[Rfam]
RNA sequence: GGGUGCACGGCCGCACAGGGCGCCGCUGCAGGGACGCGCGAUGGUCGGGCCGCCUCG
Number, nucleotide and partner (000 for none) at each position: 001g000002g000003g000004u000005g029006c028007a027008c025009g024010g023011c022012c000013g000014c000015a000016c000017a000018g000019g000020g000021c000022g011023c010024c009025g008026c000027u007028g006029c005030a000031g000032g000033g000034a000035c000036g000037c000038g000039c057040g056041a055042u000043g054044g053045u052046c000047g000048g000049g000050c000051c000052g045053c044054c043055u041056c040057g039

Description:
Shown here is a 57-nucleotide RNA from Ideonella aquatica, a member of the family "nhaA-I RNA". Acidobacteria, Alphaproteobacteria, Betaproteobacteria and Gammaproteobacteria, Verrucomicrobia, cand. division NC10.